[Rfam]
RNA: Fungal signal recognition particle RNA
Organism: Ogataea polymorpha
RNA sequence: GAGCUGUCAUGGCAUUUGUCGGGAACGUUAAUACUUCGGUAAAUUUGCCACGGCCACUACUUACAGUUUGAGGUGUCCGGUUCGAUCCUCGCGGUCGGCAUUUCACGGCUUCGAGAAGUCGAGCUCGUGGAUGCCAGCAAUGAACAGUGUUUCCACUGAAGGGUAGAAAUACAGCACAGUUCACUGUCCGUGAGGAGGCGAACGGGGUAGCAUCUUGCUGGUUUCCGUCAGGAUGGGGUAGUCGUUGUGGUGAAUUAGUUGAUUGUGACCGACAACUUGUUUU
Numbered sequence: 001g002a003g004c005u006g007u008c009a010u011g012g013c014a015u016u017u018g019u020c021g022g023g024a025a026c027g028u029u030a031a032u033a034c035u036u037c038g039g040u041a042a043a044u045u046u047g048c049c050a051c052g053g054c055c056a057c058u059a060c061u062u063a064c065a066g067u068u069u070g071a072g073g074u075g076u077c078c079g080g081u082u083c084g085a086u087c088c089u090c091g092c093g094g095u096c097g098g099c100a101u102u103u104c105a106c107g108g109c110u111u112c113g114a115g116a117a118g119u120c121g122a123g124c125u126c127g128u129g130g131a132u133g134c135c136a137g138c139a140a141u142g143a144a145c146a147g148u149g150u151u152u153c154c155a156c157u158g159a160a161g162g163g164u165a166g167a168a169a170u171a172c173a174g175c176a177c178a179g180u181u182c183a184c185u186g187u188c189c190g191u192g193a194g195g196a197g198g199c200g201a202a203c204g205g206g207g208u209a210g211c212a213u214c215u216u217g218c219u220g221g222u223u224u225c226c227g228u229c230a231g232g233a234u235g236g237g238g239u240a241g242u243c244g245u246u247g248u249g250g251u252g253a254a255u256u257a258g259u260u261g262a263u264u265g266u267g268a269c270c271g272a273c274a275a276c277u278u279g280u281u282u283u
Stems, first nucleotide, its partner, number of pairs: 001015001003013002018281001020279004029268001031266003035262001037261004042256003047251008056242005064220004070216007077206002080203005086196009097135007104127001107125005113120002138142001144187006155180004163172003